[Rfam]
RNA sequence: AUUUUGCGUUAGGGAUAGCAGCGAAAAUCCUCCCGAUUUUUCUUCGGGAGAUUGUAGCGUAUAGCCCGACCCUUU
Numbered sequence: 001a002u003u004u005u006g007c008g009u010u011a012g013g014g015a016u017a018g019c020a021g022c023g024a025a026a027a028u029c030c031u032c033c034c035g036a037u038u039u040u041u042c043u044u045c046g047g048g049a050g051a052u053u054g055u056a057g058c059g060u061a062u063a064g065c066c067c068g069a070c071c072c073u074u075u
Stems, first nucleotide, its partner, number of pairs: 012067003016063002021058002026053004032048005
Dot-bracket structure: ...........(((.((...((...((((..(((((.......))))).))))...))...)).)))........